Annotation
The family of this 130-nucleotide RNA sequence from Merluccius polli is "U4atac minor spliceosomal RNA". NCBI's taxonomy places the organism under Eukaryota, Actinopterygii, Teleostei, Osteoglossocephalai, Merluccius. About the family: U4atac is an essential component of the minor U12-type spliceosome complex which is required for removal of the rarer class of eukaryotic introns (AT-AC, U12-type).
[Rfam]
RNA sequence: ACUAUCCUUGUCUCGGGGUGGCUGGAGGCGCUCAGUGAACGGCUCGUGAGAGCGUCUCUGCUGACACCAUGACGACACAUGACGCGCCACCCGGGCCUCGCGCCCGGGCAGCGGCGCAAUUUUUGGAAAC
Number, nucleotide and partner (000 for none) at each position: 001a000002c000003u000004a000005u000006c018007c017008u016009u015010g000011u000012c000013u000014c000015g009016g008017g007018g006019u000020g000021g061022c060023u000024g058025g000026a000027g056028g055029c054030g053031c052032u051033c050034a000035g000036u000037g000038a000039a047040c046041g000042g000043c000044u000045c000046g040047u039048g000049a000050g033051a032052g031053c030054g029055u028056c027057u000058c024059u000060g022061c021062u000063g000064a000065c000066a000067c000068c000069a000070u000071g000072a000073c000074g000075a000076c000077a000078c000079a000080u000081g000082a000083c000084g117085c116086g115087c114088c113089a000090c000091c108092c107093g105094g104095g103096c102097c000098u000099c000100g000101c000102g096103c095104c094105c093106g000107g092108g091109c000110a000111g000112c000113g088114g087115c086116g085117c084118a000119a000120u000121u000122u000123u000124u000125g000126g000127a000128a000129a000130c000

The family's consensus secondary structure is taken from published work.